[Rfam]
RNA sequence: CAUUUUCCUUACACUAGGGGCUUUUUUGCCUAUAUAGUCUCCUGGUCACCCGAGGAUAAAUUAAAAAUUAUGCUCAUAUGUCUCCCCAGUAGGACUCUGAGUUUCCUUUGGGGCCUACUUCAGUAACAUA
Numbered sequence: 001c002a003u004u005u006u007c008c009u010u011a012c013a014c015u016a017g018g019g020g021c022u023u024u025u026u027u028g029c030c031u032a033u034a035u036a037g038u039c040u041c042c043u044g045g046u047c048a049c050c051c052g053a054g055g056a057u058a059a060a061u062u063a064a065a066a067a068u069u070a071u072g073c074u075c076a077u078a079u080g081u082c083u084c085c086c087c088a089g090u091a092g093g094a095c096u097c098u099g100a101g102u103u104u105c106c107u108u109u110g111g112g113g114c115c116u117a118c119u120u121c122a123g124u125a126a127c128a129u130a
Stems, first nucleotide, its partner, number of pairs: 003056005014045006020038003024034001067124003084113006091107004
Description: Shown here is a 130-nucleotide sequence from Pelodiscus sinensis, a member of the family "Small nucleolar RNA SNORA49". Rfam links the family to the GO terms RNA processing and nucleolus. The snoRNA ACA49 has no identified RNA target. NB genomic sequence 1-nt different from published. Rfam classes the family as an H/ACA-box small nucleolar RNA.